Source information:
Rfam assigns this 59-nucleotide sequence from Angustibacter sp. Root456 to the family "msiK RNA". Taxonomically the source falls in Angustibacter (Bacteria, Actinomycetota, Kineosporiales, Kineosporiaceae). It is annotated as a cis-regulatory element.
RNA sequence: ACAGAGCACCUCCCACAACGGAUCGUCCGGCACGUACCUGCCGGUGGAAGGAACACCCU
Dot-bracket structure: ........(((.(((...........((((((......))))))))).)))........
The family's consensus secondary structure is taken from published work.